[Rfam]
RNA sequence: AUUCGUUCUCGGGGCGGGGUGAAAUUCCCUACCGGCGGUAAUGGGGUCAGACCCCAAAGCCCGCGAGCGCUUGAGUCGCUUUAUGCAACUCAAGGACAGCAGAUCUGGUGUGAUUCCAGAGCCGACGGUGAUAGUCCGGAUGGUAGAGAACGUGU
Numbered sequence: 001a002u003u004c005g006u007u008c009u010c011g012g013g014g015c016g017g018g019g020u021g022a023a024a025u026u027c028c029c030u031a032c033c034g035g036c037g038g039u040a041a042u043g044g045g046g047u048c049a050g051a052c053c054c055c056a057a058a059g060c061c062c063g064c065g066a067g068c069g070c071u072u073g074a075g076u077c078g079c080u081u082u083a084u085g086c087a088a089c090u091c092a093a094g095g096a097c098a099g100c101a102g103a104u105c106u107g108g109u110g111u112g113a114u115u116c117c118a119g120a121g122c123c124g125a126c127g128g129u130g131a132u133a134g135u136c137c138g139g140a141u142g143g144u145a146g147a148g149a150a151c152g153u154g155u
Stems, first nucleotide, its partner, number of pairs: 004152007017029003031135002033124002035064004059122002067100002104120005126138003

This 155-nucleotide sequence from Maribrevibacterium harenarium belongs to the Rfam family "FMN riboswitch aptamer (RFN element)".